[Rfam]
The family of this 165-nucleotide sequence from Desulforhabdus amnigena is "glmS glucosamine-6-phosphate activated ribozyme aptamer". The match comes from Rfam's covariance-model search (86 bits). The base pairs follow the family's consensus structure, which is taken from published work.
RNA sequence: AAAGUGUCGAGAGCGCCAGAGCUUAUACCGGGAUUCUAUCGUAUAAGUUGACGAGGAUUCAGGGUGAUCGAAAUUUUCGGCGGAUGCCCUGAGGGAUGUCACAGCCCGAGAAAUGUACAAACCCCGCAAGUGAUUGCUGGAACAAAAGCAUUUCAGUGACUGGCU
Number, nucleotide and partner (000 for none) at each position: 001a000002a000003a000004g000005u000006g000007u000008c000009g000010a000011g000012a000013g000014c000015g000016c000017c000018a000019g000020a049021g048022c047023u046024u045025a044026u043027a042028c000029c000030g040031g000032g000033a000034u000035u000036c000037u000038a000039u000040c030041g000042u027043a026044u025045a024046a023047g022048u021049u020050g000051a000052c000053g000054a000055g000056g000057a000058u000059u092060c091061a090062g089063g088064g000065u000066g000067a000068u080069c079070g078071a077072a000073a000074u000075u000076u000077u071078c070079g069080g068081c000082g000083g000084a000085u000086g000087c000088c063089c062090u061091g060092a059093g107094g106095g105096a000097u103098g102099u000100c000101a000102c098103a097104g000105c095106c094107c093108g000109a000110g154111a153112a152113a151114u150115g149116u000117a000118c000119a000120a000121a000122c000123c140124c139125c000126g137127c136128a135129a134130g000131u000132g000133a000134u129135u128136g127137c126138u000139g124140g123141a000142a000143c000144a000145a000146a000147a000148g000149c115150a114151u113152u112153u111154c110155a000156g000157u000158g000159a000160c000161u000162g000163g000164c000165u000